[Rfam]
RNA sequence: AUGCAAUAGCUGAUAGCUGCCUUUUAUUAGGUAGAGGAAAGUCCGUGCUAGCACCAACUGCGAUGUUGGUAGUGAUCACGUUAAGCCCAAUAAGCUUAAGCCUAGACGACUAGUGCCACAGAGACGAGAAUUGUGAAACGCGGUAAACUCCGUGAGCUAGAAACCCAAAUUUGGUAGGGGAAUCGCAAAUAGAAAAUGAACAAUUUUGCGAAGUAUAUCUUUAAUGAUAUAUUAGAUAAAUUAUCAGCACUUUUUUAAAGUACAGAACACGGCUUAUUUUG
Numbered sequence: 001a002u003g004c005a006a007u008a009g010c011u012g013a014u015a016g017c018u019g020c021c022u023u024u025u026a027u028u029a030g031g032u033a034g035a036g037g038a039a040a041g042u043c044c045g046u047g048c049u050a051g052c053a054c055c056a057a058c059u060g061c062g063a064u065g066u067u068g069g070u071a072g073u074g075a076u077c078a079c080g081u082u083a084a085g086c087c088c089a090a091u092a093a094g095c096u097u098a099a100g101c102c103u104a105g106a107c108g109a110c111u112a113g114u115g116c117c118a119c120a121g122a123g124a125c126g127a128g129a130a131u132u133g134u135g136a137a138a139c140g141c142g143g144u145a146a147a148c149u150c151c152g153u154g155a156g157c158u159a160g161a162a163a164c165c166c167a168a169a170u171u172u173g174g175u176a177g178g179g180g181a182a183u184c185g186c187a188a189a190u191a192g193a194a195a196a197u198g199a200a201c202a203a204u205u206u207u208g209c210g211a212a213g214u215a216u217a218u219c220u221u222u223a224a225u226g227a228u229a230u231a232u233u234a235g236a237u238a239a240a241u242u243a244u245c246a247g248c249a250c251u252u253u254u255u256u257a258a259a260g261u262a263c264a265g266a267a268c269a270c271g272g273c274u275u276a277u278u279u280u281g
Stems, first nucleotide, its partner, number of pairs: 004281003008277001009248007017034006039275003043272005048160005053070006076155005081099006100107001101105001108150002113148002115144003164179003183211007212233008250260003